[Rfam]
RNA sequence: AAAUUUGAGUAAUCGCUGCGUCUGAAAAAUGGCGUAGAGGAAAGUCCAUGCUCACACGGAUCUGAGAUGACCGUAGUGUUCGUGCUUACUGAAUCAAUAAGGUAAGGUAGCUUAGCGGCUAACGGCAGAAGGAAAACCUAAGUCUUUUAGAUAUGGUUGAAACUUCUUGAAAGUGCCACAGUGACGGAGCUUAUAAGGAAACUUAUGAGGUGGAACGAGGUAAACCCCACGAGUGAGAAACCCAAAUUAUGGUAGGGGCAUUCUUCUGAAGGAAUUGAACAGAUGAAGAGACGCACAUAGUUGCGUAGAUAGAUGAUUACUGCUCAUGGUACGAGGUUUUAUAACUGUUUGAGUACCCGAGAACAAAACAUGGCUUAUAAAA
Numbered sequence: 001a002a003a004u005u006u007g008a009g010u011a012a013u014c015g016c017u018g019c020g021u022c023u024g025a026a027a028a029a030u031g032g033c034g035u036a037g038a039g040g041a042a043a044g045u046c047c048a049u050g051c052u053c054a055c056a057c058g059g060a061u062c063u064g065a066g067a068u069g070a071c072c073g074u075a076g077u078g079u080u081c082g083u084g085c086u087u088a089c090u091g092a093a094u095c096a097a098u099a100a101g102g103u104a105a106g107g108u109a110g111c112u113u114a115g116c117g118g119c120u121a122a123c124g125g126c127a128g129a130a131g132g133a134a135a136a137c138c139u140a141a142g143u144c145u146u147u148u149a150g151a152u153a154u155g156g157u158u159g160a161a162a163c164u165u166c167u168u169g170a171a172a173g174u175g176c177c178a179c180a181g182u183g184a185c186g187g188a189g190c191u192u193a194u195a196a197g198g199a200a201a202c203u204u205a206u207g208a209g210g211u212g213g214a215a216c217g218a219g220g221u222a223a224a225c226c227c228c229a230c231g232a233g234u235g236a237g238a239a240a241c242c243c244a245a246a247u248u249a250u251g252g253u254a255g256g257g258g259c260a261u262u263c264u265u266c267u268g269a270a271g272g273a274a275u276u277g278a279a280c281a282g283a284u285g286a287a288g289a290g291a292c293g294c295a296c297a298u299a300g301u302u303g304c305g306u307a308g309a310u311a312g313a314u315g316a317u318u319a320c321u322g323c324u325c326a327u328g329g330u331a332c333g334a335g336g337u338u339u340u341a342u343a344a345c346u347g348u349u350u351g352a353g354u355a356c357c358c359g360a361g362a363a364c365a366a367a368a369c370a371u372g373g374c375u376u377a378u379a380a381a382a
Stems, first nucleotide, its partner, number of pairs: 004382003007378001008321007016037006042376003046373005051237005056074004061070002080232005085106006107123001108121005124227002127167004135158004142152003173225002175221003190209008241257003261290006291306005323361003328357005